The family of this 41-nucleotide RNA from Rudaeicoccus suwonensis is "L31-Actinobacteria ribosomal protein leader". The organism belongs to Rudaeicoccus, within Bacteria. By type it is a cis-regulatory leader. Pairs were carried over by alignment from the consensus structure, which is taken from published work.
[Rfam]
RNA sequence: CACCGGUUCACGUCCCGACAUCCGUCGCGGCGACCCGGAGG
Numbered sequence: 001c002a003c004c005g006g007u008u009c010a011c012g013u014c015c016c017g018a019c020a021u022c023c024g025u026c027g028c029g030g031c032g033a034c035c036c037g038g039a040g041g
Base pairs, nucleotide, nucleotide: 001041003038004037005036006035011032012031013030014029016027017026018025019024